[Rfam]
RNA sequence: CCUCUGGAGCUGUUUUGGGGACAGCGGGACCUGUCCCUGUCCUCUGGAGCUGUUUUGGGGACAGCGGGACCUGUCCCUGUCCUCUGGAG
Dot-bracket structure: ...(.(.((..(.....(((.........(((.(((((..................))))).)).).........))).).))).)...
RNA: NoRC associated RNA, pRNA
Organism: Pteruthius melanotis